[Rfam]
Shown here is a 93-nucleotide RNA sequence from Pyramidobacter sp. CG50-2, a member of the family "SAM riboswitch aptamer (S box leader)". The match comes from Rfam's covariance-model search (49 bits). Lineage of the source: Bacteria > Thermotogati > Synergistia > Dethiosulfovibrionaceae > Pyramidobacter. The base pairs follow the family's consensus structure, which is taken from published work. About the family: The SAM riboswitch is found upstream of a number of genes which code for proteins involved in methionine or cysteine biosynthesis in Gram-positive bacteria.
RNA sequence: CUUUUAUCAAGAGUCAGGGGAGAGAGUCAGCUCGAUGAUCCUGCACCAACCUGCCCGCACGGGGAAAGGUGGUCCUGCUGACAGCGAUGAGGG
Numbered sequence: 001c002u003u004u005u006a007u008c009a010a011g012a013g014u015c016a017g018g019g020g021a022g023a024g025a026g027u028c029a030g031c032u033c034g035a036u037g038a039u040c041c042u043g044c045a046c047c048a049a050c051c052u053g054c055c056c057g058c059a060c061g062g063g064g065a066a067a068g069g070u071g072g073u074c075c076u077g078c079u080g081a082c083a084g085c086g087a088u089g090a091g092g093g
Base pairs, nucleotide, nucleotide: 001093002092003091004090005089006088007087008086013044015043016042017041018040022033023032024031028080029079030078045073046072047071048070050069051068052065054063077085